[Rfam]
RNA: Plastid-ycf2 5UTR RNA
RNA sequence: AUGCAUUCAGUAAGAAUUAAACGUACGAAUUCACCAAUUAUGAGUGGGAUGUUUUAACCAUUUAGCCAUGGAUGC
Numbered sequence: 001a002u003g004c005a006u007u008c009a010g011u012a013a014g015a016a017u018u019a020a021a022c023g024u025a026c027g028a029a030u031u032c033a034c035c036a037a038u039u040a041u042g043a044g045u046g047g048g049a050u051g052u053u054u055u056a057a058c059c060a061u062u063u064a065g066c067c068a069u070g071g072a073u074g075c
Stems, first nucleotide, its partner, number of pairs: 003075006010026003014022001040069003044066002047063005